[Rfam]
RNA sequence: UUUGGGUUCAAAGAUGUUAAUUUUAUACUGCGUUAUCUAUCUGAUCGUCCUUUUCAAAGGAACUGAAGAUAAUACUAAUCUCAUACUGAGAUCCAUU
Dot-bracket structure: ..(((((...................................................................................)))))..
Numbered sequence: 001u002u003u004g005g006g007u008u009c010a011a012a013g014a015u016g017u018u019a020a021u022u023u024u025a026u027a028c029u030g031c032g033u034u035a036u037c038u039a040u041c042u043g044a045u046c047g048u049c050c051u052u053u054u055c056a057a058a059g060g061a062a063c064u065g066a067a068g069a070u071a072a073u074a075c076u077a078a079u080c081u082c083a084u085a086c087u088g089a090g091a092u093c094c095a096u097u
Stems, first nucleotide, its partner, number of pairs: 003095005

Rfam assigns this 97-nucleotide RNA from Hibiscus syriacus to the family "Small nucleolar RNA snoR27". A search with the family's covariance model found it, with a score of 60 bits. On this family, see Brown et al., RNA 2001: "Multiple snoRNA gene clusters from Arabidopsis". The organism belongs to Hibiscus, within Eukaryota.